[Rfam]
RNA: Small nucleolar RNA SNORD110
Organism: Rattus norvegicus
RNA sequence: UUGCAAUGAUGACUUGAAAAAUCUGUCAAUCCCCUGAGUGAUCGAUGAUGACUCCAUGUUUCUGAGCAA
Numbered sequence: 001u002u003g004c005a006a007u008g009a010u011g012a013c014u015u016g017a018a019a020a021a022u023c024u025g026u027c028a029a030u031c032c033c034c035u036g037a038g039u040g041a042u043c044g045a046u047g048a049u050g051a052c053u054c055c056a057u058g059u060u061u062c063u064g065a066g067c068a069a
Stems, first nucleotide, its partner, number of pairs: 001069004